[Rfam]
RNA sequence: GCAGUAAGCUGGACAGCCGCGCGGGCGGGGCGAAAGGCCCGCCUGUGAGGAAAGUCCGGGCUCCGCAGGGCAAGGAUAACGGGUAACACCCGCCGGGGGCGACCCUAGGACAAGUGCAACAGAGAUAUACCGCCCCCGCUUCCCUCUCGGAAGCGGGAGCAAGGGUGGAAAGGCGAGGUAAGAGCUCACCCGAUGGCGUGUAAAAGCGCCCAUCGCUGUAAACUCUAUCCGGAGCAACGCCGUGGGAACACACACAGACCGGCCCGGUCGUGUUCAGGAGGCGGCUUGAGCGUAUUGGCAACAAUGCGUCGAGAUAGAUGGCUGUCUUAAAAGACAGAACCCGGCUUACAGGCUUACUGCACCA
Numbered sequence: 001g002c003a004g005u006a007a008g009c010u011g012g013a014c015a016g017c018c019g020c021g022c023g024g025g026c027g028g029g030g031c032g033a034a035a036g037g038c039c040c041g042c043c044u045g046u047g048a049g050g051a052a053a054g055u056c057c058g059g060g061c062u063c064c065g066c067a068g069g070g071c072a073a074g075g076a077u078a079a080c081g082g083g084u085a086a087c088a089c090c091c092g093c094c095g096g097g098g099g100c101g102a103c104c105c106u107a108g109g110a111c112a113a114g115u116g117c118a119a120c121a122g123a124g125a126u127a128u129a130c131c132g133c134c135c136c137c138g139c140u141u142c143c144c145u146c147u148c149g150g151a152a153g154c155g156g157g158a159g160c161a162a163g164g165g166u167g168g169a170a171a172g173g174c175g176a177g178g179u180a181a182g183a184g185c186u187c188a189c190c191c192g193a194u195g196g197c198g199u200g201u202a203a204a205a206g207c208g209c210c211c212a213u214c215g216c217u218g219u220a221a222a223c224u225c226u227a228u229c230c231g232g233a234g235c236a237a238c239g240c241c242g243u244g245g246g247a248a249c250a251c252a253c254a255c256a257g258a259c260c261g262g263c264c265c266g267g268u269c270g271u272g273u274u275c276a277g278g279a280g281g282c283g284g285c286u287u288g289a290g291c292g293u294a295u296u297g298g299c300a301a302c303a304a305u306g307c308g309u310c311g312a313g314a315u316a317g318a319u320g321g322c323u324g325u326c327u328u329a330a331a332a333g334a335c336a337g338a339a340c341c342c343g344g345c346u347u348a349c350a351g352g353c354u355u356a357c358u359g360c361a362c363c364a
Stems, first nucleotide, its partner, number of pairs: 001360010011349001012326007020047009052347003056344005061234004069265002074230005080092004094108001095106004109225002114223002116219003130164002132160002135157009172190002175187003192214001195210005238283003246275006257269004290309008